[Rfam]
RNA sequence: UCUGCAAGUUUGAGGCCAAAGCAGAAGCAGUCAUGGCACAGCCUGUCAGGUUCCAAUGAAUCUGUGAAUUCUGCU
Numbered sequence: 001u002c003u004g005c006a007a008g009u010u011u012g013a014g015g016c017c018a019a020a021g022c023a024g025a026a027g028c029a030g031u032c033a034u035g036g037c038a039c040a041g042c043c044u045g046u047c048a049g050g051u052u053c054c055a056a057u058g059a060a061u062c063u064g065u066g067a068a069u070u071c072u073g074c075u
Base pairs, nucleotide, nucleotide: 014043015042016041020075021074022073023072024071025070026069027039047064048063049062050061051060052059053058

Mammalian CPEB3 ribozyme: a 75-nucleotide RNA from Alligator mississippiensis. Rfam describes the family as follows. The mammalian CPEB3 ribozyme is a self cleaving RNA located in the second intron of the CPEB3 gene which belongs to a family of genes regulating messenger RNA polyadenylation. Gene Ontology term of the family: RNA nuclease activity.